[Rfam]
RNA sequence: UCUGCAUGAAAGACAUGGGUAGUGAGAUGAUCAUGCGACUUUCGCGUCUCACUACCUUGUCUUUCAUGUGGCG
Numbered sequence: 001u002c003u004g005c006a007u008g009a010a011a012g013a014c015a016u017g018g019g020u021a022g023u024g025a026g027a028u029g030a031u032c033a034u035g036c037g038a039c040u041u042u043c044g045c046g047u048c049u050c051a052c053u054a055c056c057u058u059g060u061c062u063u064u065c066a067u068g069u070g071g072c073g
Stems, first nucleotide, its partner, number of pairs: 008065008017057003021053009
The family of this 73-nucleotide RNA from Cotesia congregata is "mir-71 microRNA precursor family".
The match comes from Rfam's covariance-model search (71 bits).
For this family Rfam cites "The silkworm (Bombyx mori) microRNAs and their expressions in multiple developmental stages" (Yu et al., PLoS One, 2008).
NCBI's taxonomy places the organism under Eukaryota, Opisthokonta, Bilateria, Ichneumonoidea, Cotesia.